[Rfam]
RNA sequence: UGUCGACAAUGGCAAACUUUCUCGAAAGAAAAGGACGCAAAGCCACGGGCCUAAAUAUUUUAGAUACAAGGUAGCCGGGUUGCCGAA
Number, nucleotide and partner (000 for none) at each position: 001u000002g000003u000004c000005g000006a000007c000008a000009a000010u000011g000012g038013c037014a000015a000016a000017c033018u032019u031020u030021c000022u029023c028024g000025a000026a000027a000028g023029a022030a020031a019032a018033g017034g000035a000036c000037g013038c012039a000040a000041a081042g080043c079044c078045a000046c077047g076048g075049g072050c071051c070052u000053a000054a000055a000056u066057a065058u064059u063060u000061u000062a000063g059064a058065u057066a056067c000068a000069a000070g051071g050072u049073a000074g000075c048076c047077g046078g044079g043080u042081u041082g000083c000084c000085g000086a000087a000
Rfam assigns this 87-nucleotide RNA from Planococcus massiliensis to the family "c-di-GMP-I riboswitch aptamer". Rfam links the family to the GO term cyclic-di-GMP binding. A search with the family's covariance model found it, with a score of 80 bits.